Source information
Rfam assigns this 91-nucleotide RNA sequence from Clupea harengus to the family "Small nucleolar RNA U83B". The pairing is the family consensus, mapped onto this sequence. Rfam 15.1 lists 966 matches to the family in 652 species. The source organism's lineage runs through Eukaryota, Opisthokonta, Actinopterygii, Clupeoidei and Clupea. Rfam links the family to the GO terms nucleolus and RNA processing. U83B belongs to the C/D family of snoRNAs. It is annotated as a C/D-box small nucleolar RNA.
RNA sequence: GGUGUUCAGUGACGAGAACAAGGAAUAUCGCGUCAGGCAUGGCGCCUGACUCUGAUGAAGAUUUAUUCCGCUGCCUUCCUCUGAGAACACA
Numbered sequence: 001g002g003u004g005u006u007c008a009g010u011g012a013c014g015a016g017a018a019c020a021a022g023g024a025a026u027a028u029c030g031c032g033u034c035a036g037g038c039a040u041g042g043c044g045c046c047u048g049a050c051u052c053u054g055a056u057g058a059a060g061a062u063u064u065a066u067u068c069c070g071c072u073g074c075c076u077u078c079c080u081c082u083g084a085g086a087a088c089a090c091a
Base pairs, nucleotide, nucleotide: 002090003089004088005087